About this RNA:
mir-33 microRNA precursor family: a 71-nucleotide RNA from Muraenolepis orangiensis.

RNA sequence: CUGUGGUGCAUUGUAGUUGCAUUGCAUGCGUUUCCGGGCCAAGAGUGCAAUGUGUCUGCAGUGCAACACAG
Numbered sequence: 001c002u003g004u005g006g007u008g009c010a011u012u013g014u015a016g017u018u019g020c021a022u023u024g025c026a027u028g029c030g031u032u033u034c035c036g037g038g039c040c041a042a043g044a045g046u047g048c049a050a051u052g053u054g055u056c057u058g059c060a061g062u063g064c065a066a067c068a069c070a071g
Stems, first nucleotide, its partner, number of pairs: 001071004006067001007065010019053001021051007
The organism belongs to Muraenolepis, within Eukaryota. For this family Rfam cites "Direct sequencing and expression analysis of a large number of miRNAs in Aedes aegypti and a multi-species survey of novel mosquito miRNAs" (Li et al., BMC Genomics, 2009). Its family is annotated with RISC complex and gene silencing by miRNA in the Gene Ontology.